A member of the RNA family "Purine riboswitch aptamer" from Halalkalibacter okhensis, 102 nucleotides long. The family is grouped with related families in Rfam's "Purine riboswitches". Its family is annotated with purine nucleobase biosynthetic process in the Gene Ontology. The match comes from Rfam's covariance-model search (87 bits). The base pairs follow the family's consensus structure, which is taken from published work. For this family Rfam cites "Structure of a natural guanine-responsive riboswitch complexed with the metabolite hypoxanthine" (Batey et al., Nature, 2004). The source organism's lineage runs through Bacteria, Bacillati, Bacillota, Bacillaceae and Halalkalibacter.

RNA sequence: CAAACAAUCAAAUAAAAAACUCGUAUAAAAUUGGGGAUAUGGCCCAAAAGUUUCUACCAGGCUGCCGUAAAUGGCUUGACUACGAGUGCAAAGAUAUGUCGU
Numbered sequence: 001c002a003a004a005c006a007a008u009c010a011a012a013u014a015a016a017a018a019a020c021u022c023g024u025a026u027a028a029a030a031u032u033g034g035g036g037a038u039a040u041g042g043c044c045c046a047a048a049a050g051u052u053u054c055u056a057c058c059a060g061g062c063u064g065c066c067g068u069a070a071a072u073g074g075c076u077u078g079a080c081u082a083c084g085a086g087u088g089c090a091a092a093g094a095u096a097u098g099u100c101g102u
Base pairs, nucleotide, nucleotide: 019087020086021085022084023083024082025081031047032046033045034044035043058078059077060076061075062074063073064072
Dot-bracket structure: ..................(((((((.....(((((.......)))))..........(((((((.......)))))))..)))))))...............